[Rfam]
RNA: mir-1 microRNA precursor family
Organism: Diatraea saccharalis
RNA sequence: GUGCGAGUUCCGUGCUUCCUUACUUCCCAUAGUGCUUAUAAUCGUAUGGAAUGUAAAGAAGUAUGGAGCUGCGCG
Numbered sequence: 001g002u003g004c005g006a007g008u009u010c011c012g013u014g015c016u017u018c019c020u021u022a023c024u025u026c027c028c029a030u031a032g033u034g035c036u037u038a039u040a041a042u043c044g045u046a047u048g049g050a051a052u053g054u055a056a057a058g059a060a061g062u063a064u065g066g067a068g069c070u071g072c073g074c075g
Stems, first nucleotide, its partner, number of pairs: 007069012020056004025051001027049005